This 295-nucleotide sequence from Spodoptera exigua belongs to the Rfam family "Nuclear RNase P".
NCBI's taxonomy places the organism under Eukaryota, Eumetazoa, Aparaglossata, Ditrysia, Spodoptera.
Gene Ontology terms of the family: tRNA processing, ribonuclease P complex and ribonuclease P activity.
The family's consensus secondary structure is taken from published work.
For this family Rfam cites "Ribonuclease P: unity and diversity in a tRNA processing ribozyme" (Frank and Pace, Annu Rev Biochem, 1998).
[Rfam]
RNA sequence: CCAAUGUCAAUCUCGUACUUGGGGCGCACUUACUGAGUGCUUGUCACUCUCUUCGCCCCGGGAAGGUCUGAGUAAAGGUCUUUGUGUUUAAAAACAUUCUAGCCGGAUGCUUCUCUUAAAGGGAAGGCAGGGGAACCAGAAAUUACAGUGUAAUGUUAAGCCUGUGAAGCCAGGCCUGUGGGGUCAGGUGGAGUUGUAGACAUUGUCACUGUUGGAAACCCCUGUGACCAGCAAUUUUAGCCCAAUCUACGAGAUGACUUAUGUCACAACUCAAUUCAGACUAGUCUCUCAUUGG
Numbered sequence: 001c002c003a004a005u006g007u008c009a010a011u012c013u014c015g016u017a018c019u020u021g022g023g024g025c026g027c028a029c030u031u032a033c034u035g036a037g038u039g040c041u042u043g044u045c046a047c048u049c050u051c052u053u054c055g056c057c058c059c060g061g062g063a064a065g066g067u068c069u070g071a072g073u074a075a076a077g078g079u080c081u082u083u084g085u086g087u088u089u090a091a092a093a094a095c096a097u098u099c100u101a102g103c104c105g106g107a108u109g110c111u112u113c114u115c116u117u118a119a120a121g122g123g124a125a126g127g128c129a130g131g132g133g134a135a136c137c138a139g140a141a142a143u144u145a146c147a148g149u150g151u152a153a154u155g156u157u158a159a160g161c162c163u164g165u166g167a168a169g170c171c172a173g174g175c176c177u178g179u180g181g182g183g184u185c186a187g188g189u190g191g192a193g194u195u196g197u198a199g200a201c202a203u204u205g206u207c208a209c210u211g212u213u214g215g216a217a218a219c220c221c222c223u224g225u226g227a228c229c230a231g232c233a234a235u236u237u238u239a240g241c242c243c244a245a246u247c248u249a250c251g252a253g254a255u256g257a258c259u260u261a262u263g264u265c266a267c268a269a270c271u272c273a274a275u276u277c278a279g280a281c282u283a284g285u286c287u288c289u290c291a292u293u294g295g
Stems, first nucleotide, its partner, number of pairs: 001295004009287001012253006021059005035049005068279005077229004095109005110126006127225007146211003255266004